[Rfam]
RNA sequence: UGAGAAGCCGCUCCUUAUGAGUAAUUUUGGCUAAGCAUAGAGAAGUCAUUUCGUCGUGAAUUUUCUCUAUGCUUUUAUUAUAUCA
Numbered sequence: 001u002g003a004g005a006a007g008c009c010g011c012u013c014c015u016u017a018u019g020a021g022u023a024a025u026u027u028u029g030g031c032u033a034a035g036c037a038u039a040g041a042g043a044a045g046u047c048a049u050u051u052c053g054u055c056g057u058g059a060a061u062u063u064u065c066u067c068u069a070u071g072c073u074u075u076u077a078u079u080a081u082a083u084c085a
Stems, first nucleotide, its partner, number of pairs: 004028004010022004033074013
Record summary
A member of the RNA family "ctRNA" from Lactococcus lactis, 85 nucleotides long. Taxonomically the source falls in Lactococcus lactis subsp. lactis (Bacteria, Bacillota, Lactobacillales, Lactococcus). On this family, see Duan et al., FEMS Microbiol Lett 1998: "Involvement of antisense RNA in replication control of the lactococcal plasmid pND324". Pairs were carried over by alignment from the consensus structure, which was predicted with ILM. Rolling circle replication plasmids contain a number of mechanisms to maintain a low copy number. One of these methods is to transcribe a small RNA called ctRNA (for counter-transcribed RNA) than is transcribed on the opposite strand to RepB the replication initiation protein. ctRNA binds to the mRNA of repB and causes translational inhibition. It is annotated as an antisense RNA.